The family of this 187-nucleotide sequence from Macaca mulatta is "Small Cajal body specific RNA 16". About the family: scaRNAs are a specific class of small nuclear RNAs which localise to the Cajal bodies and guide the modification of RNA polymerase II transcribed spliceosomal RNAs U1, U2, U4, U5 and U12. ACA47 belongs to the H/ACA box class of guide RNAs as it has the predicted hairpin-hinge-hairpin-tail structure, the conserved H/ACA-box motifs and is found associated with GAR1. ACA47 is predicted to guide the pseudouridylation of residue U5 of the U1 spliceosomal snRNA. Taxonomically the source falls in Macaca (Eukaryota, Vertebrata, Gnathostomata, Euteleostomi). A reference for the family is Darzacq et al. (2002), "Cajal body-specific small nuclear RNAs: a novel class of 2'-O-methylation and pseudouridylation guide RNAs", EMBO J. The sequence is in the family's curated seed alignment. Gene Ontology terms of the family: RNA processing and nucleolus.
RNA sequence: AUGGCCUUGGGAAAGGCUCCUGUGUUGUUGAACCUGCUCAGUUGUGGGUGCAGCCUUGCACCAGGCAGCCCAACCCUGCCCUAAAGUAAAUUUCCAGGAAAAGUCUUUCCUGGGUUGUGAAUCUGCAGUAACAGGUGUGCACAUCCUAGCAGCAGUUUGAUGAUCAUGGAUGAAACUGCAAACAGGA
Numbered sequence: 001a002u003g004g005c006c007u008u009g010g011g012a013a014a015g016g017c018u019c020c021u022g023u024g025u026u027g028u029u030g031a032a033c034c035u036g037c038u039c040a041g042u043u044g045u046g047g048g049u050g051c052a053g054c055c056u057u058g059c060a061c062c063a064g065g066c067a068g069c070c071c072a073a074c075c076c077u078g079c080c081c082u083a084a085a086g087u088a089a090a091u092u093u094c095c096a097g098g099a100a101a102a103g104u105c106u107u108u109c110c111u112g113g114g115u116u117g118u119g120a121a122u123c124u125g126c127a128g129u130a131a132c133a134g135g136u137g138u139g140c141a142c143a144u145c146c147u148a149g150c151a152g153c154a155g156u157u158u159g160a161u162g163a164u165c166a167u168g169g170a171u172g173a174a175a176c177u178g179c180a181a182a183c184a185g186g187a
Stems, first nucleotide, its partner, number of pairs: 003081002006078001009075002015070004019065004024061002027054004032049003093114003097109004122182001124180006132172002138166002142162004148157003